The family of this 506-nucleotide sequence from Streptomyces bingchenggensis is "Saccharopolyspora sRNA 350".
The family's RNA type in Rfam is antisense RNA.
The family has 2 seed sequences and 1,170 matches in Rfam 15.1.
Rfam links the family to the GO term regulation of secondary metabolite biosynthetic process.
The family's consensus secondary structure was predicted with RNAfold.
RNA sequence: UUGGCGGUGUACUCCCAGGUCGAAUCGGCGCUGAGCAGACACUGCUCGCCGAACCGGUCGCCGUCGCCCAGCACGCCGAGCCGGGUCGGCUCGCCGUACGGACCGCUGCCGGUCUUGACGACCUUGCCGUGCGCGAUCAGAUAGAUGUGAUCGGCCGCGGUGCCCUCCUCCGCCAGCACCUCACCGGCCUCGAAGUCGCGCUGCACGAAACGGUUGGCGAGCGCCGUCAGCACGCCCACGUCCUCGAAGCCGCGCAACACCGCGAGCUCCCCGAGCUCACGCGGAAUGACCUGCACCCGCGAACCGGUCUGCACAAACUCGAUACGGCCGUCCCCGACGGUGUAGGUGAGGCGCCGGUUGACCCGGUACACCCCGCCGUCGGUCUGCACCCAGGGGAGCACCUUGAGCAGCCAGCGGGAGGUGAUCCCCUGCAUCUGCGGAACGGACUUGGUGGUGGUGGCGAGGUUGCGUGCGGCGGCGGUGCCGAGGCUGAGCUGCUCCUGCCG
Dot-bracket structure: .....((((((..((..(..((..((((...((.((((((.(.(.((((.(..(...(.((.((((.(......(.((.((..(((......))))).))..)....).)).....(....((...(..((.(((....(..(....((...(((((.(.((....(....)....)).....)))))).))...))....))).)..)..)...))....))).)).))..)(..(..(((.(......((.(.(.(...(......).....).)).))....).)))..)..)..)))).).))))))).))...))))..)).)((((......))))........(((.(((..(...........)))).))).))..))))))(((((((.(((.((..(.......).))..))).))))))).....((.(.(((.((((.((.......)).))).).))).).))((.(...(..((......)))..)...)).